[Rfam]
RNA sequence: CGCAGCUGCGUCAAAUUCAGUCCUCGUCCAGACUGGCCAAACAGCUGCCGCAGCAACAGCCGUAGCUCGUGAGCCCCACUGUCCCUCUCCCGCGGCCCUGGGGAUAGAUAAAUGCCACAGACACCG
Numbered sequence: 001c002g003c004a005g006c007u008g009c010g011u012c013a014a015a016u017u018c019a020g021u022c023c024u025c026g027u028c029c030a031g032a033c034u035g036g037c038c039a040a041a042c043a044g045c046u047g048c049c050g051c052a053g054c055a056a057c058a059g060c061c062g063u064a065g066c067u068c069g070u071g072a073g074c075c076c077c078a079c080u081g082u083c084c085c086u087c088u089c090c091c092g093c094g095g096c097c098c099u100g101g102g103g104a105u106a107g108a109u110a111a112a113u114g115c116c117a118c119a120g121a122c123a124c125c126g
Base pairs, nucleotide, nucleotide: 002048003047004046005045018035019034020033021032022031062118063117065115066114067112074103075102076101077100078099
Dot-bracket structure: .((((............(((((........))))).........)))).............((.(((......(((((....................)))))........).)).))........